[Rfam]
RNA sequence: AGGCAGCGGCAGACUACGACCCGUGCAAGCCGGGUGCACCCCGCAAGGGGUGCGGCGCUCACAGCUUUAGCU
Numbered sequence: 001a002g003g004c005a006g007c008g009g010c011a012g013a014c015u016a017c018g019a020c021c022c023g024u025g026c027a028a029g030c031c032g033g034g035u036g037c038a039c040c041c042c043g044c045a046a047g048g049g050g051u052g053c054g055g056c057g058c059u060c061a062c063a064g065c066u067u068u069a070g071c072u
Base pairs, nucleotide, nucleotide: 005066006065007064014055015054019035020034021033022032036053037052038051039050040049041048

The family of this 72-nucleotide RNA is "Twister_sister_ribozyme". Gene Ontology term of the family: catalytic activity. For this family Rfam cites "New classes of self-cleaving ribozymes revealed by comparative genomics analysis" (Weinberg et al., Nat Chem Biol, 2015).